[Rfam]
RNA sequence: GGUAUGUAGAAUAAUUCCCUCAUAACGGGCCAGCUGAAUGAUUACAUUUCUUCCUGGUCGUAUUGAGGGAGAGAAAAAUGUUUUUC
Numbered sequence: 001g002g003u004a005u006g007u008a009g010a011a012u013a014a015u016u017c018c019c020u021c022a023u024a025a026c027g028g029g030c031c032a033g034c035u036g037a038a039u040g041a042u043u044a045c046a047u048u049u050c051u052u053c054c055u056g057g058u059c060g061u062a063u064u065g066a067g068g069g070a071g072a073g074a075a076a077a078a079u080g081u082u083u084u085u086c
Stems, first nucleotide, its partner, number of pairs: 015071008025061002028059006036050003
Source information:
Rfam assigns this 86-nucleotide RNA from Branchiostoma floridae to the family "mir-4899 microRNA precursor family". The family's consensus secondary structure was predicted with RNAalifold. The match comes from Rfam's covariance-model search (93 bits). Lineage of the source: Eukaryota > Metazoa > Deuterostomia > Cephalochordata > Branchiostoma. Rfam links the family to the GO terms miRNA-mediated post-transcriptional gene silencing and RISC complex.